[Rfam]
Record summary
A member of the RNA family "Betaproteobacteria toxic small RNA" from Polaromonas naphthalenivorans, 65 nucleotides long. Rfam's curators put it in the seed alignment. For this family Rfam cites "A vast collection of microbial genes that are toxic to bacteria" (Kimelman et al., Genome Res, 2012). Rfam 15.1 lists 951 matches to the family in 508 species. Overexpression in amino aid rich medium attenuates growth, suggesting role in repressing amino acid intake and metabolism. The base pairs follow the family's consensus structure, which was predicted with WAR.
RNA sequence: UGUCUCCUCCACCUCCUCAAAGGGUGGAUUUAUAGGUCCAGACCGCAUGGUCUGGGCCUUUUUUU
Numbered sequence: 001u002g003u004c005u006c007c008u009c010c011a012c013c014u015c016c017u018c019a020a021a022g023g024g025u026g027g028a029u030u031u032a033u034a035g036g037u038c039c040a041g042a043c044c045g046c047a048u049g050g051u052c053u054g055g056g057c058c059u060u061u062u063u064u065u
Base pairs, nucleotide, nucleotide: 008028009027010026011025012024013023035058036057037056038055039054040053041052042051